[Rfam]
RNA sequence: GAAGGUAGAUGAUGAAUAAGUUAUUAUCCUACACACUGAAUUAACUGUGGAUCUUAAAUCUCCGCUUAUUAUCUGAUGCCUUC
Numbered sequence: 001g002a003a004g005g006u007a008g009a010u011g012a013u014g015a016a017u018a019a020g021u022u023a024u025u026a027u028c029c030u031a032c033a034c035a036c037u038g039a040a041u042u043a044a045c046u047g048u049g050g051a052u053c054u055u056a057a058a059u060c061u062c063c064g065c066u067u068a069u070u071a072u073c074u075g076a077u078g079c080c081u082u083c
Stems, first nucleotide, its partner, number of pairs: 003081005
The family of this 83-nucleotide RNA sequence from Hevea brasiliensis is "Small nucleolar RNA R16". Rfam classes the family as a C/D-box small nucleolar RNA. The family's consensus secondary structure was predicted with PFOLD. Rfam links the family to the GO terms RNA processing and nucleolus. The match comes from Rfam's covariance-model search (74 bits). Lineage of the source: Eukaryota > Streptophytina > Mesangiospermae > Euphorbiaceae > Hevea. Rfam 15.1 lists 884 matches to the family in 222 species. For this family Rfam cites "Purified box C/D snoRNPs are able to reproduce site-specific 2'-O-methylation of target RNA in vitro" (Galardi et al., Mol Cell Biol, 2002).